[Rfam]
RNA sequence: CUCCCUCAGCCUUACUCCGGAGCCUUUUGCCGUGAAGUGCUCCGGCAUUGCCUGAGGGUACAGGACCGAGCACACGUCCCUCCCCAGGAAGACUCUGUGUUCUCGUGGGGCCCACGGGUUGAGCUGACAGU
Numbered sequence: 001c002u003c004c005c006u007c008a009g010c011c012u013u014a015c016u017c018c019g020g021a022g023c024c025u026u027u028u029g030c031c032g033u034g035a036a037g038u039g040c041u042c043c044g045g046c047a048u049u050g051c052c053u054g055a056g057g058g059u060a061c062a063g064g065a066c067c068g069a070g071c072a073c074a075c076g077u078c079c080c081u082c083c084c085c086a087g088g089a090a091g092a093c094u095c096u097g098u099g100u101u102c103u104c105g106u107g108g109g110g111c112c113c114a115c116g117g118g119u120u121g122a123g124c125u126g127a128c129a130g131u
Stems, first nucleotide, its partner, number of pairs: 003058007011050001017045006024037004069125003073121002082110005090103003